[Rfam]
RNA sequence: AAGAAAGUGACUGCCGCCCCGCACAGGGGCGAAGCUAAUAAACCAAUAUCAAAUCAAGUUUCACGAGGGCGCAAGCGCAUCGAGCGGUUCAGCCAGGAAGGCCCCAAGCACCAGCGACAA
Numbered sequence: 001a002a003g004a005a006a007g008u009g010a011c012u013g014c015c016g017c018c019c020c021g022c023a024c025a026g027g028g029g030c031g032a033a034g035c036u037a038a039u040a041a042a043c044c045a046a047u048a049u050c051a052a053a054u055c056a057a058g059u060u061u062c063a064c065g066a067g068g069g070c071g072c073a074a075g076c077g078c079a080u081c082g083a084g085c086g087g088u089u090c091a092g093c094c095a096g097g098a099a100g101g102c103c104c105c106a107a108g109c110a111c112c113a114g115c116g117a118c119a120a
Stems, first nucleotide, its partner, number of pairs: 011087004015031006058078001108115002
RNA: Burkholderia sRNA Bp1_Cand684_SIPHT
Organism: Caballeronia glathei